Shown here is a 139-nucleotide sequence from Theobroma cacao, a member of the family "Small nucleolar RNA snoR138". Rfam links the family to the GO terms nucleolus and RNA processing. The literature on the family includes a 2009 paper in Nucleic Acids Res by Chen and Wu, "Mining small RNA sequencing data: a new approach to identify small nucleolar RNAs in Arabidopsis".
RNA sequence: AAUGCCUCCAGAAUAACCAGAAGGUUAGAAUAUGAUCCGACGCCGUCUUGGUUCAGACAGAGGCUUAGAGCAAUUCGAAUCCGUUUGAGGGUAAGGAACGAUUUUCCUCCGUUCCUUUCCUAGAUGUCUUCGAAUAUUU
Numbered sequence: 001a002a003u004g005c006c007u008c009c010a011g012a013a014u015a016a017c018c019a020g021a022a023g024g025u026u027a028g029a030a031u032a033u034g035a036u037c038c039g040a041c042g043c044c045g046u047c048u049u050g051g052u053u054c055a056g057a058c059a060g061a062g063g064c065u066u067a068g069a070g071c072a073a074u075u076c077g078a079a080u081c082c083g084u085u086u087g088a089g090g091g092u093a094a095g096g097a098a099c100g101a102u103u104u105u106c107c108u109c110c111g112u113u114c115c116u117u118u119c120c121u122a123g124a125u126g127u128c129u130u131c132g133a134a135u136a137u138u139u
Stems, first nucleotide, its partner, number of pairs: 004064004009060001015053005020047002024043002076132004084123002089120003093117001096114005

The base pairs follow the family's consensus structure, which was predicted with mfold.